mir-204 microRNA precursor family: an 88-nucleotide RNA sequence from Mus musculus.
Its family is annotated with miRNA-mediated post-transcriptional gene silencing and RISC complex in the Gene Ontology.
Lineage of the source: Eukaryota > Bilateria > Euteleostomi > Euarchontoglires > Mus.

RNA sequence: CUGUGACCUGUGGGCUUCCCUUUGUCAUCCUUUGCCUAGGCCUCUGAGUGAGGCAAGGACAGCAAAGGGGGGCUCAGUGGUCACCUCU
Numbered sequence: 001c002u003g004u005g006a007c008c009u010g011u012g013g014g015c016u017u018c019c020c021u022u023u024g025u026c027a028u029c030c031u032u033u034g035c036c037u038a039g040g041c042c043u044c045u046g047a048g049u050g051a052g053g054c055a056a057g058g059a060c061a062g063c064a065a066a067g068g069g070g071g072g073c074u075c076a077g078u079g080g081u082c083a084c085c086u087c088u
Base pairs, nucleotide, nucleotide: 017070018069019068020067021066022065024063025062028059029058030057031056032055034054035053036052037051